[Rfam]
RNA sequence: AGCAAAAUGAUGAGUCUAUGCAUCUGAAUUUUAUGUAGAUGCACACUAUGUAUUGGUCUUCAAAGUUCUCUGAUUGCU
Numbered sequence: 001a002g003c004a005a006a007a008u009g010a011u012g013a014g015u016c017u018a019u020g021c022a023u024c025u026g027a028a029u030u031u032u033a034u035g036u037a038g039a040u041g042c043a044c045a046c047u048a049u050g051u052a053u054u055g056g057u058c059u060u061c062a063a064a065g066u067u068c069u070c071u072g073a074u075u076g077c078u
Base pairs, nucleotide, nucleotide: 001078002077003076004075005074
Dot-bracket structure: (((((....................................................................)))))
This 78-nucleotide RNA from Protea cynaroides belongs to the Rfam family "Small nucleolar RNA R160". The match comes from Rfam's covariance-model search (67 bits). Rfam's curators write: snoR160 is a C/D box small nucleolar RNA, which acts as a methylation guide for 25S ribosomal RNA in plants. snoR160 has been alternatively named snoZ270 in rice. The source organism's lineage runs through Eukaryota, Streptophytina, Proteales, Proteaceae and Protea.